[Rfam]
RNA sequence: UCUGGUUUCUUGCUUUCCCAUAAAAAAGCAAGUGGUGCGGAUGGGGCAACCCCGCCCAGUUUCUUGCUUCUGGUCAAAGAGCAAGUGGCGAGCCUGCAU
Numbered sequence: 001u002c003u004g005g006u007u008u009c010u011u012g013c014u015u016u017c018c019c020a021u022a023a024a025a026a027a028g029c030a031a032g033u034g035g036u037g038c039g040g041a042u043g044g045g046g047c048a049a050c051c052c053c054g055c056c057c058a059g060u061u062u063c064u065u066g067c068u069u070c071u072g073g074u075c076a077a078a079g080a081g082c083a084a085g086u087g088g089c090g091a092g093c094c095u096g097c098a099u
Base pairs, nucleotide, nucleotide: 009032010031011030012029013028014027015026042054043053044052045051046050056073057072058071059070063085064084065083066082067081068080